[Rfam]
RNA sequence: UAAGACUUAGGCAAUGAAGUUUGCCUUUAAGUAUCCUUUGUGAUUAAUGACUUCUACUAUUGU
Numbered sequence: 001u002a003a004g005a006c007u008u009a010g011g012c013a014a015u016g017a018a019g020u021u022u023g024c025c026u027u028u029a030a031g032u033a034u035c036c037u038u039u040g041u042g043a044u045u046a047a048u049g050a051c052u053u054c055u056a057c058u059a060u061u062g063u
Stems, first nucleotide, its partner, number of pairs: 010025004016054006033044003

Fluoride riboswitch aptamer (crcB RNA motif): a 63-nucleotide sequence from Clostridium luticellarii. The source organism's lineage runs through Bacteria, Bacillota, Clostridia, Clostridiaceae and Clostridium. The base pairs follow the family's consensus structure, which is taken from published work.